[Rfam]
RNA sequence: ACAUUACGACAGGGGAGCGUCCGAUCCGGGACCGCGGCAAGCCGCGCGCCGGGCGGGACGCUGAGAGUGCGGCCCACCGCAGACCCUCGAACCUGCUCCGGUUAGUACCGGCGAAGGGAGUCGAGUUCUCAGGGAU
Numbered sequence: 001a002c003a004u005u006a007c008g009a010c011a012g013g014g015g016a017g018c019g020u021c022c023g024a025u026c027c028g029g030g031a032c033c034g035c036g037g038c039a040a041g042c043c044g045c046g047c048g049c050c051g052g053g054c055g056g057g058a059c060g061c062u063g064a065g066a067g068u069g070c071g072g073c074c075c076a077c078c079g080c081a082g083a084c085c086c087u088c089g090a091a092c093c094u095g096c097u098c099c100g101g102u103u104a105g106u107a108c109c110g111g112c113g114a115a116g117g118g119a120g121u122c123g124a125g126u127u128c129u130c131a132g133g134g135a136u
Stems, first nucleotide, its partner, number of pairs: 007123004011087004017061005068081005092117003098111004

Notes:
This 136-nucleotide sequence from Crystallibacter crystallopoietes belongs to the Rfam family "TPP riboswitch aptamer (THI element)". The literature on the family includes a 2006 paper in Nature by Serganov et al., "Structural basis for gene regulation by a thiamine pyrophosphate-sensing riboswitch".